RNA sequence: CUGCGGUGAUGUGCCUCUUAGGACACCUUUGGAUGGGCCGUGAAAGGAACGCGUUCUGAGCAGC
Numbered sequence: 001c002u003g004c005g006g007u008g009a010u011g012u013g014c015c016u017c018u019u020a021g022g023a024c025a026c027c028u029u030u031g032g033a034u035g036g037g038c039c040g041u042g043a044a045a046g047g048a049a050c051g052c053g054u055u056c057u058g059a060g061c062a063g064c
Base pairs, nucleotide, nucleotide: 001063002062003061004060
Background: A member of the RNA family "Small nucleolar RNA SNORD58" from Carlito syrichta, 64 nucleotides long. The family's RNA type in Rfam is C/D-box small nucleolar RNA. Gene Ontology terms of the family: nucleolus and RNA processing. The family is grouped with related families in Rfam's "SNORD58 clan".